Rfam assigns this 111-nucleotide sequence from Dickeya dadantii to the family "RprA RNA". The base pairs follow the family's consensus structure, which was predicted with PFOLD.
RNA sequence: CCGGAGCUAUUGUUAACGUAAUGUUUGUCAGUGAGGUUUCUCCUCGUCAGAGCUAGUAACGAAUUGCUGUGUGUAGUCUUUGCCCAUCCCCUGAGGUGGGCUUUUUUUUAU
Numbered sequence: 001c002c003g004g005a006g007c008u009a010u011u012g013u014u015a016a017c018g019u020a021a022u023g024u025u026u027g028u029c030a031g032u033g034a035g036g037u038u039u040c041u042c043c044u045c046g047u048c049a050g051a052g053c054u055a056g057u058a059a060c061g062a063a064u065u066g067c068u069g070u071g072u073g074u075a076g077u078c079u080u081u082g083c084c085c086a087u088c089c090c091c092u093g094a095g096g097u098g099g100g101c102u103u104u105u106u107u108u109u110a111u
Stems, first nucleotide, its partner, number of pairs: 002023002033048002036045001065073003082101007

It scores 76 bits against the family's covariance model. On this family, see Majdalani et al., Mol Microbiol 2001: "Regulation of RpoS by a novel small RNA: the characterization of RprA". It is annotated as a small RNA. Translational regulation of the stationary phase sigma factor RpoS is mediated by the formation of a double-stranded RNA stem-loop structure in the upstream region of the rpoS messenger RNA, occluding the translation initiation site.